The record is a 428-nucleotide part of an RNA from Paracyclopina nana, which matches "Eukaryotic large subunit ribosomal RNA" in Rfam. NCBI's taxonomy places the organism under Eukaryota, Protostomia, Arthropoda, Podoplea, Paracyclopina.

[Rfam]
RNA sequence: CGACUUGAGAGCAGGCAAGACUACCCGCCAAAUUUAAGCAUAUUAAUAAGCGGAGGAAAAGAAAACAACCGUGAUACCCUUAGUAACGGCGAGUGAAACGGGUAGAGCCCAUCGCCGAAUCGCCGGCCAUCUCGGUCGCGUGAAAUGUGGCGUACGGGAGAGCCUCAUCGCAGCUAGCCGGUGCGUCCAAGUACACCUUGACUGGGACCACGGCCCGUAGAGGGUGAUAGGCCCGUGUGACUGCUGGCUGGCUGCGCUGGUUUUUCCCUAGAGUCGAGUUGUUUGGGAGUACAGCUCAAAGUGCGUGGUAAACUCCACGUAAGGCUAAAUAUGACCCCGAGACCGAUAGCGAACAAGUACCGUGAGGGAAAGUUGAAAAGAACUUUGAAGAGAGAGUUCAAGAGUACGUGAAACUGUUCAGUAGUAAA
Numbered sequence: 001c002g003a004c005u006u007g008a009g010a011g012c013a014g015g016c017a018a019g020a021c022u023a024c025c026c027g028c029c030a031a032a033u034u035u036a037a038g039c040a041u042a043u044u045a046a047u048a049a050g051c052g053g054a055g056g057a058a059a060a061g062a063a064a065a066c067a068a069c070c071g072u073g074a075u076a077c078c079c080u081u082a083g084u085a086a087c088g089g090c091g092a093g094u095g096a097a098a099c100g101g102g103u104a105g106a107g108c109c110c111a112u113c114g115c116c117g118a119a120u121c122g123c124c125g126g127c128c129a130u131c132u133c134g135g136u137c138g139c140g141u142g143a144a145a146u147g148u149g150g151c152g153u154a155c156g157g158g159a160g161a162g163c164c165u166c167a168u169c170g171c172a173g174c175u176a177g178c179c180g181g182u183g184c185g186u187c188c189a190a191g192u193a194c195a196c197c198u199u200g201a202c203u204g205g206g207a208c209c210a211c212g213g214c215c216c217g218u219a220g221a222g223g224g225u226g227a228u229a230g231g232c233c234c235g236u237g238u239g240a241c242u243g244c245u246g247g248c249u250g251g252c253u254g255c256g257c258u259g260g261u262u263u264u265u266c267c268c269u270a271g272a273g274u275c276g277a278g279u280u281g282u283u284u285g286g287g288a289g290u291a292c293a294g295c296u297c298a299a300a301g302u303g304c305g306u307g308g309u310a311a312a313c314u315c316c317a318c319g320u321a322a323g324g325c326u327a328a329a330u331a332u333g334a335c336c337c338c339g340a341g342a343c344c345g346a347u348a349g350c351g352a353a354c355a356a357g358u359a360c361c362g363u364g365a366g367g368g369a370a371a372g373u374u375g376a377a378a379a380g381a382a383c384u385u386u387g388a389a390g391a392g393a394g395a396g397u398u399c400a401a402g403a404g405u406a407c408g409u410g411a412a413a414c415u416g417u418u419c420a421g422u423a424g425u426a427a428a
Stems, first nucleotide, its partner, number of pairs: 024055001025053004035042002065072002076103004086094002106326004113152005119146001120143004124138005157267002159264004164260001166259002173252007185241003191208001194206001196205002216220001223233002276297007303320005360367002383394004
Dot-bracket structure: .......................(((((......((....)).......)))).).........((....))...((((......((.....)).....))))..((((...(((((.((((((((((.....))))).))))..).)))))....((((((.(.((.....(((((((.....(((...(..(.((......))).).......(...)..((.......)).....)))....))))))).....))))))).))........(((((((........))))))).....(((((........)))))..)))).................................((....))...............((((....))))..................................
It is one of the family's seed sequences.
The family's consensus secondary structure is taken from published work.